[Rfam]
RNA sequence: GUCUGGAUACUGCCCGGUGAAGAUGGUCGGACGGCUGGGAACGCA
Numbered sequence: 001g002u003c004u005g006g007a008u009a010c011u012g013c014c015c016g017g018u019g020a021a022g023a024u025g026g027u028c029g030g031a032c033g034g035c036u037g038g039g040a041a042c043g044c045a
Stems, first nucleotide, its partner, number of pairs: 012032001014030005
The family of this 45-nucleotide RNA sequence from Mycobacterium intermedium is "Mycobacterium sRNA Ms_AS-5". It scores 62 bits against the family's covariance model. The organism belongs to Mycobacterium simiae complex, within Bacteria.